[Rfam]
RNA: Guanidine-II riboswitch aptamer (mini-ykkC)
Organism: Taxus chinensis
RNA sequence: CACCCGGGACGUCCCGGGUGCUUUUUCAGUUUUUAGGGGACGACCCCU
Number, nucleotide and partner (000 for none) at each position: 001c020002a019003c018004c017005c016006g015007g014008g013009a000010c000011g000012u000013c008014c007015c006016g005017g004018g003019u002020g001021c000022u000023u000024u000025u000026u000027c000028a000029g000030u000031u000032u000033u000034u000035a048036g047037g046038g045039g044040a000041c000042g000043a000044c039045c038046c037047c036048u035